[Rfam]
RNA sequence: CUGUUACCCGGGAAUGAGGUCUCCCAUGGUAGUGUAAUAUUUACCAGAACCGCUUAUGACAGCUGAUGGCUUCUGCAUUGUG
Numbered sequence: 001c002u003g004u005u006a007c008c009c010g011g012g013a014a015u016g017a018g019g020u021c022u023c024c025c026a027u028g029g030u031a032g033u034g035u036a037a038u039a040u041u042u043a044c045c046a047g048a049a050c051c052g053c054u055u056a057u058g059a060c061a062g063c064u065g066a067u068g069g070c071u072u073c074u075g076c077a078u079u080g081u082g
Stems, first nucleotide, its partner, number of pairs: 010025004016073006052063003
RNA: Fluoride riboswitch aptamer (crcB RNA motif)